[Rfam]
RNA sequence: AUAGGUAAGGAUAAAAACACAGUUCUGGUCGGUAGUCCAGACGCAGUUGGCAACAAUUGUCAGUAACCUGCCUCCUAUGGUUGUCCAUUCUUUAUAUCAUUUGA
Numbered sequence: 001a002u003a004g005g006u007a008a009g010g011a012u013a014a015a016a017a018c019a020c021a022g023u024u025c026u027g028g029u030c031g032g033u034a035g036u037c038c039a040g041a042c043g044c045a046g047u048u049g050g051c052a053a054c055a056a057u058u059g060u061c062a063g064u065a066a067c068c069u070g071c072c073u074c075c076u077a078u079g080g081u082u083g084u085c086c087a088u089u090c091u092u093u094a095u096a097u098c099a100u101u102u103g104a
Base pairs, nucleotide, nucleotide: 005095006094007093008092009091010090011089022042023041025040026039027038028037043060044059045058046057047056048055070081071080072079
This 104-nucleotide RNA sequence from Isobaculum melis belongs to the Rfam family "azaaromatic riboswitch aptamer (yjdF RNA)". NCBI's taxonomy places the organism under Bacteria, Bacillota, Bacilli, Carnobacteriaceae, Isobaculum. Pairs were carried over by alignment from the consensus structure, which is taken from published work.